[Rfam]
RNA sequence: GCGCGCAUCAUUGGGGAGUAGCUGAUUUCCUUUAUUGGAAAUGUACGUGUCAACAUACUCGUUUAAAUAACGUGGCGCGUACGGGCUGUGAUUAGCACAGUCAGGCGAGACCAAAGACAGUUAUCGGCGCUGUUUACUGGGGGCGCUGUGCUGUUCUUUGUCAAUUCCCCGGUCAGGAU
Numbered sequence: 001g002c003g004c005g006c007a008u009c010a011u012u013g014g015g016g017a018g019u020a021g022c023u024g025a026u027u028u029c030c031u032u033u034a035u036u037g038g039a040a041a042u043g044u045a046c047g048u049g050u051c052a053a054c055a056u057a058c059u060c061g062u063u064u065a066a067a068u069a070a071c072g073u074g075g076c077g078c079g080u081a082c083g084g085g086c087u088g089u090g091a092u093u094a095g096c097a098c099a100g101u102c103a104g105g106c107g108a109g110a111c112c113a114a115a116g117a118c119a120g121u122u123a124u125c126g127g128c129g130c131u132g133u134u135u136a137c138u139g140g141g142g143g144c145g146c147u148g149u150g151c152u153g154u155u156c157u158u159u160g161u162c163a164a165u166u167c168c169c170c171g172g173u174c175a176g177g178a179u
Stems, first nucleotide, its partner, number of pairs: 026040002043082010060072004083179001086176003

Manganese Mn2+ riboswitch aptamer (yybP-ykoY): a 179-nucleotide RNA sequence from Mangrovibacter sp. MFB070.
It scores 49 bits against the family's covariance model.
The organism belongs to Mangrovibacter, within Bacteria.
The base pairs follow the family's consensus structure.
This RNA was originally discovered in E. coli during a large scale screen and was named SraF. The family was later found to exist upstream of related families of protein genes in many bacteria, including the the yybP and ykoK genes in B. subtilis.